[Rfam]
RNA sequence: UCCCUGUGACGGUUUAGUAAGGAGUCUGCGACCCAGAGUCCCGUGAGCGCCGCGGACCGGUGCCCGGCGUGCGGGGCCAUGCAGCCGCGGCCACGGUGUAGCUCGCAGCAGCGCCCCCUGUGAAGAGGCCCGCGAUGCCCCGGCCACUGUGAACCCCGCGGCCCGCGUGAAUACGCUCAGCCACGGACCGGCUCAGCCUUGGAUACGCCGCUGCACUCCGCACUAGGCGACCAGCACCGAGGAAUCCAGAGGGCGGAGGGCACGCGGAAGGCCUCCCCCAUCCGCGGGGGAAGCCGGCGUGGGCAGCGCAGGGACACGCACUCGGACUGGCACUGGCAGCUAGGG
Numbered sequence: 001u002c003c004c005u006g007u008g009a010c011g012g013u014u015u016a017g018u019a020a021g022g023a024g025u026c027u028g029c030g031a032c033c034c035a036g037a038g039u040c041c042c043g044u045g046a047g048c049g050c051c052g053c054g055g056a057c058c059g060g061u062g063c064c065c066g067g068c069g070u071g072c073g074g075g076g077c078c079a080u081g082c083a084g085c086c087g088c089g090g091c092c093a094c095g096g097u098g099u100a101g102c103u104c105g106c107a108g109c110a111g112c113g114c115c116c117c118c119u120g121u122g123a124a125g126a127g128g129c130c131c132g133c134g135a136u137g138c139c140c141c142g143g144c145c146a147c148u149g150u151g152a153a154c155c156c157c158g159c160g161g162c163c164c165g166c167g168u169g170a171a172u173a174c175g176c177u178c179a180g181c182c183a184c185g186g187a188c189c190g191g192c193u194c195a196g197c198c199u200u201g202g203a204u205a206c207g208c209c210g211c212u213g214c215a216c217u218c219c220g221c222a223c224u225a226g227g228c229g230a231c232c233a234g235c236a237c238c239g240a241g242g243a244a245u246c247c248a249g250a251g252g253g254c255g256g257a258g259g260g261c262a263c264g265c266g267g268a269a270g271g272c273c274u275c276c277c278c279c280a281u282c283c284g285c286g287g288g289g290g291a292a293g294c295c296g297g298c299g300u301g302g303g304c305a306g307c308g309c310a311g312g313g314a315c316a317c318g319c320a321c322u323c324g325g326a327c328u329g330g331c332a333c334u335g336g337c338a339g340c341u342a343g344g345g
Base pairs, nucleotide, nucleotide: 001290002289003288004287005286006285007284008283021041022040023039025037026036027035028034043276045275046274047273049272050271051270055106060104064098065096067094069092071091072090074088076085077084108150109149110148111145113144114143115142120138121137122136125133127131154267155266157264158263161261162260164258166256168255169254174251176249177248180245184241189210190209191208192207193203194202196200217240218239220237224234293341295339297337298336301333303331304330305328306327309324311322312321

Shown here is a 345-nucleotide RNA from Nannospalax galili, a member of the family "TrkB IRES". The literature on the family includes a 2005 paper in Nucleic Acids Res by Dobson et al., "Internal initiation of translation of the TrkB mRNA is mediated by multiple regions within the 5' leader". Lineage of the source: Eukaryota > Chordata > Glires > Spalacidae > Nannospalax. Rfam's curators write: This family represents the TrkB internal ribosome entry site (IRES) which is present in the 5' leader sequence of the mRNA. TrkB is a neurotrophin receptor which is essential for the development and maintenance of the nervous system. The IRES element allows cap-independent translation of TrkB which may be needed for efficient translation in neuronal dendrites.